Rfam assigns this 83-nucleotide RNA sequence from Caballeronia concitans to the family "Burkholderia sRNA 16 (Bc_KC_sr1)". The base pairs follow the family's consensus structure, which was predicted with RNAfold. Identified by RNA-seq, RACE and Northern blot. Strongly expressed in biofilm. Also know as Bc_KC_sr1. A reference for the family is Sass et al. (2017), "Identification of small RNAs abundant in Burkholderia cenocepacia biofilms reveal putative regulators with a potential role in carbon and iron metabolism", Sci Rep. Its family is annotated with bacterial biofilm matrix in the Gene Ontology.
[Rfam]
RNA sequence: GUAGGUGGAUGGCUGGGCCAUCGCCUGCCAUUCUCCUCUUGUCGUUGUUGCUCCGGGGCCCGAUUGGACCCCGGUUUUUUUUG
Numbered sequence: 001g002u003a004g005g006u007g008g009a010u011g012g013c014u015g016g017g018c019c020a021u022c023g024c025c026u027g028c029c030a031u032u033c034u035c036c037u038c039u040u041g042u043c044g045u046u047g048u049u050g051c052u053c054c055g056g057g058g059c060c061c062g063a064u065u066g067g068a069c070c071c072c073g074g075u076u077u078u079u080u081u082u083g
Stems, first nucleotide, its partner, number of pairs: 001028007009021005053074006059067001